[Rfam]
Notes: Shown here is a 262-nucleotide sequence from Firmicutes bacterium CAG:227, a member of the family "Bacterial large signal recognition particle RNA". Its Rfam clan is "SRP clan". It is annotated as a non-coding RNA gene. For this family Rfam cites "SRPDB: Signal Recognition Particle Database" (Rosenblad et al., Nucleic Acids Res, 2003). The match comes from Rfam's covariance-model search (191 bits). The source organism's lineage runs through Bacteria, Bacillati and Bacillota.
RNA sequence: CCGUGCAGCCGGGGAGUUAGCGGUGCCCUGUACCUGCAAUCCGCUACAGCAGGGGUGUUGCCAAACGGAGGGGCUUGCUUUGCGGAGCUGCCCUCUAUAAGUGGCGUUGACGUUUGGGUCUCACGCAACAGGACUCUGUGAACCGUGUCAGGUCAGGAAUGAAGCAGCACUAAGCAGAAUCCCCUGUGUGCCGUGAGGGUGCCUGGGCUGAGUUAACUGUAGAGGUAACGUCCGUGAAGGAGUCUCGAUGGGCGGUGCACGG
Numbered sequence: 001c002c003g004u005g006c007a008g009c010c011g012g013g014g015a016g017u018u019a020g021c022g023g024u025g026c027c028c029u030g031u032a033c034c035u036g037c038a039a040u041c042c043g044c045u046a047c048a049g050c051a052g053g054g055g056u057g058u059u060g061c062c063a064a065a066c067g068g069a070g071g072g073g074c075u076u077g078c079u080u081u082g083c084g085g086a087g088c089u090g091c092c093c094u095c096u097a098u099a100a101g102u103g104g105c106g107u108u109g110a111c112g113u114u115u116g117g118g119u120c121u122c123a124c125g126c127a128a129c130a131g132g133a134c135u136c137u138g139u140g141a142a143c144c145g146u147g148u149c150a151g152g153u154c155a156g157g158a159a160u161g162a163a164g165c166a167g168c169a170c171u172a173a174g175c176a177g178a179a180u181c182c183c184c185u186g187u188g189u190g191c192c193g194u195g196a197g198g199g200u201g202c203c204u205g206g207g208c209u210g211a212g213u214u215a216a217c218u219g220u221a222g223a224g225g226u227a228a229c230g231u232c233c234g235u236g237a238a239g240g241a242g243u244c245u246c247g248a249u250g251g252g253c254g255g256u257g258c259a260c261g262g
Base pairs, nucleotide, nucleotide: 001262002261003260004259005258006257007256008056009055010054011029012028013027014026016024017023018022033053034052035051036050037049061255062254066250067249070246071245072244073243074242076241078239079238080237081236082235083234084233085232089227090226093224094223095222096221097220098219101217102216103214104213105212112208113207114206115205116204117203118202119201120197121196122195123194124193125192126188127187129186130185131184132183135178136177137176138175139174145170146169147168148167153162154161155160